This 47-nucleotide RNA from Algoriphagus aquimarinus belongs to the Rfam family "Acido-Lenti-1 RNA".
[Rfam]
RNA sequence: CCUCGGGUUGAAACCCGAGGCUACCUAUAGUCCGUCCCUAUGGGACU
Numbered sequence: 001c002c003u004c005g006g007g008u009u010g011a012a013a014c015c016c017g018a019g020g021c022u023a024c025c026u027a028u029a030g031u032c033c034g035u036c037c038c039u040a041u042g043g044g045a046c047u
Stems, first nucleotide, its partner, number of pairs: 001020008034046005